[Rfam]
RNA: Plastid-ccsA-ndhD-2 3UTR RNA
RNA sequence: UUUGCAAAAACCUUUUGAAUCAAAUAGUAAAGUGAUUCUGAAGGUUUUUAUGG
Numbered sequence: 001u002u003u004g005c006a007a008a009a010a011c012c013u014u015u016u017g018a019a020u021c022a023a024a025u026a027g028u029a030a031a032g033u034g035a036u037u038c039u040g041a042a043g044g045u046u047u048u049u050a051u052g053g
Stems, first nucleotide, its partner, number of pairs: 004051001006049010017038006